[Rfam]
The family of this 77-nucleotide RNA sequence from Peromyscus maniculatus is "mir-216 microRNA precursor family". The family's consensus secondary structure was predicted with WAR. Gene Ontology terms of the family: miRNA-mediated post-transcriptional gene silencing and RISC complex. A reference for the family is Lim et al. (2003), "Vertebrate microRNA genes", Science.
RNA sequence: AGACUGAGAAAUCUCUGCAGGCAAAUGUGAUGUCAGCGAAAAGAAUCACACACUUACCCGUAGAGAUUCUUCCGUCU
Numbered sequence: 001a002g003a004c005u006g007a008g009a010a011a012u013c014u015c016u017g018c019a020g021g022c023a024a025a026u027g028u029g030a031u032g033u034c035a036g037c038g039a040a041a042a043g044a045a046u047c048a049c050a051c052a053c054u055u056a057c058c059c060g061u062a063g064a065g066a067u068u069c070u071u072c073c074g075u076c077u
Base pairs, nucleotide, nucleotide: 003075004074006072007071010068011067012066013065014064015063016062017061020059021058023055024054026052027051028050029049